[Rfam]
RNA: Small nucleolar RNA SNORA46
RNA sequence: UGCACUAUUUUUAAACAAAUAGGAAUUUUGCCCAUUCGUGCCCCAUUCAUGGUUACACUGUAUGCAAAAGAAUACCUGGCUCUUUGCUGCACAGCAGACUUGUGCCGUUGGUUGUUGCUUUAUGGAGUUAAGGAACAUGG
Numbered sequence: 001u002g003c004a005c006u007a008u009u010u011u012u013a014a015a016c017a018a019a020u021a022g023g024a025a026u027u028u029u030g031c032c033c034a035u036u037c038g039u040g041c042c043c044c045a046u047u048c049a050u051g052g053u054u055a056c057a058c059u060g061u062a063u064g065c066a067a068a069a070g071a072a073u074a075c076c077u078g079g080c081u082c083u084u085u086g087c088u089g090c091a092c093a094g095c096a097g098a099c100u101u102g103u104g105c106c107g108u109u110g111g112u113u114g115u116u117g118c119u120u121u122a123u124g125g126a127g128u129u130a131a132g133g134a135a136c137a138u139g140g
Stems, first nucleotide, its partner, number of pairs: 002065003006062003014054003018047003022043002073135001075133003078129006085122002089118003092114004097109002